[Rfam]
RNA sequence: CCAUAGCCACGUCUUCGAGCCCUUCGGUCUGCCGGGUCCCCGCCCAAUGACCGUCCGGCCGAAAGGGUGCGACUGGAAACGAUCGCGCCUCCCGUUUGGAAAGAAGACACCCAUGAACUUAU
Numbered sequence: 001c002c003a004u005a006g007c008c009a010c011g012u013c014u015u016c017g018a019g020c021c022c023u024u025c026g027g028u029c030u031g032c033c034g035g036g037u038c039c040c041c042g043c044c045c046a047a048u049g050a051c052c053g054u055c056c057g058g059c060c061g062a063a064a065g066g067g068u069g070c071g072a073c074u075g076g077a078a079a080c081g082a083u084c085g086c087g088c089c090u091c092c093c094g095u096u097u098g099g100a101a102a103g104a105a106g107a108c109a110c111c112c113a114u115g116a117a118c119u120u121a122u
Stems, first nucleotide, its partner, number of pairs: 004115001011108006019059003025053005034045003065090008074081002091099002
Dot-bracket structure: ...(......((((((..(((...(((((....(((......)))...)))))...))).....((((((((.((....)).))))))))((.....))...))))))......).......
Molybdenum/Tungsten riboswitch aptamer (Moco RNA motif): a 122-nucleotide RNA sequence from Opitutaceae bacterium EW11. Rfam links the family to the GO terms regulation of gene expression, molybdenum ion binding and tungstate binding. Taxonomically the source falls in Opitutaceae (Bacteria, Pseudomonadati, Verrucomicrobiota, Opitutia). A search with the family's covariance model found it, with a score of 65 bits.